[Rfam]
RNA sequence: AUAAAAAAAUACAAUUUACCUCAUAUAUAAUGGGAAUAUGGCCCAUAAGUUUCUACCCGACAACCUUAAAUUGUUGGACUAUGAGGAAAGUAAAUGACGGG
Numbered sequence: 001a002u003a004a005a006a007a008a009a010u011a012c013a014a015u016u017u018a019c020c021u022c023a024u025a026u027a028u029a030a031u032g033g034g035a036a037u038a039u040g041g042c043c044c045a046u047a048a049g050u051u052u053c054u055a056c057c058c059g060a061c062a063a064c065c066u067u068a069a070a071u072u073g074u075u076g077g078a079c080u081a082u083g084a085g086g087a088a089a090g091u092a093a094a095u096g097a098c099g100g101g
Base pairs, nucleotide, nucleotide: 019086020085021084022083023082024081025080028048030046031045032044033043034042057077058076059075060074061073062072063071
A member of the RNA family "Purine riboswitch aptamer" from Robertmurraya siralis, 101 nucleotides long.
Taxonomically the source falls in Robertmurraya (Bacteria, Bacillota, Bacilli, Caryophanales).
Rfam describes the family as follows. Riboswitches are metabolite binding domains within certain messenger RNAs that serve as precision sensors for their corresponding targets. Allosteric rearrangement of mRNA structure is mediated by ligand binding, and this results in modulation of gene expression. A class of riboswitches that selectively recognises guanine and becomes saturated at concentrations as low as 5 nM. In Bacillus subtilis, this mRNA motif is located on at least five separate transcriptional units that together encode 17 genes that are mostly involved in purine transport and purine nucleotide biosynthesis.
The family's consensus secondary structure is taken from published work.